[Rfam]
The record is a 104-nucleotide part of an RNA from Angomonas deanei, which matches "Eukaryotic large subunit ribosomal RNA" in Rfam. Rfam links the family to the GO terms structural constituent of ribosome and ribosome. The base pairs follow the family's consensus structure, which is taken from published work. Lineage of the source: Eukaryota > Discoba > Metakinetoplastina > Trypanosomatidae > Angomonas.
RNA sequence: CGGCUCUUCCUAACCUAGCGCCGCAGAAGACGCUAAGGGUUGGAUUGUUCACCCACUGACAGGGAACGUGAGCUGGGUUUAGACCGUCGUGAGACAGGUUGGUU
Number, nucleotide and partner (000 for none) at each position: 001c076002g074003g073004c072005u071006c068007u065008u064009c063010c062011u061012a000013a000014c039015c038016u000017a034018g033019c032020g031021c000022c029023g000024c000025a000026g000027a000028a000029g022030a000031c020032g019033c018034u017035a000036a000037g000038g015039g014040u000041u055042g054043g053044a000045u051046u000047g000048u000049u000050c000051a045052c000053c043054c042055a041056c000057u000058g000059a000060c000061a011062g010063g009064g008065a007066a000067c000068g006069u000070g000071a005072g004073c003074u002075g000076g001077g000078u000079u000080u000081a000082g100083a099084c098085c097086g095087u094088c093089g000090u000091g000092a000093g088094a087095c086096a000097g085098g084099u083100u082101g000102g000103u000104u000